[Rfam]
RNA: U2 spliceosomal RNA
RNA sequence: UUCACUAAGUCGGCAAGAUGAUCAGCUGAGUUUACUCGCGAGUAUCUGUUCUUAUCUGUUUAAUAUCUGAUAAGUGGGCCAUCGGUCCACAUGAUAUUAAAUUAAUUUUUCUAUGGGGAAGGGCCCACCACAGUAGGUUGCUCUUGGGGUCCUUGCGCGUCGCUCAUGCAUUGCACUACUGCACAGGUCUGGCGCACCCCAC
Dot-bracket structure: ....................................................((((.(........).)))).(((((((...)))))))............................((((((((......(.((....)).)..))))))))..((((((.(..(((...........)))..)...)))))).......